Source information
This 391-nucleotide RNA from Mollisiaceae sp. DMI_Dod_QoI belongs to the Rfam family "Nuclear RNase P". The source organism's lineage runs through Eukaryota, Opisthokonta, saccharomyceta, sordariomyceta and Mollisiaceae. About the family: Ribonuclease P (RNase P) is a ubiquitous endoribonuclease, found in archaea, bacteria and eukarya as well as chloroplasts and mitochondria.
RNA sequence: UCCUCUUCAACGCUGCGUUUCUAUGCUACAAACAGAUACGUUGCGAUUCAGUUCACAGCCUAUCAGAUCCUCGGAUCGUCCCUCUUGCAUAUGAGAAAUUCGGAGUAAUCUUCAACCUACCUUCUUCCUCUUCCUCCGGGUCGAGUGAUAGGUCUGCCCGUGAGGGUUCGGCGUGAUCUCACGUCUGCAAUUGGCAUCAGAAAAGCAGGAGCAAGUCUUAUCUCAUCUACCGCAAGGAAAAGGGAUCUGUGCUUGUUUCCUAUGGGAGGGCCGUUGCGAAGAUUGUGUGCAUGCGUGCGACACUUGAGUGCAAUACGCGGCGUGCUGGUCUCUGAGUCACCUUGGUGACUUGGAGAUGGGUACAAUUCGAUUCCGAUUACUCUGUUGAGGA
Dot-bracket structure: ((((...((..(((((((...((((.........((.......................................))..........)))).........[[[[[....((((..........................................((((....))))..(((((......))))).((((..(((...........(((((.............................................)))))........))).)))))))).................................)))))))(((((.((((((((((((......)))))))))))).))))).......]]]]].......))...))))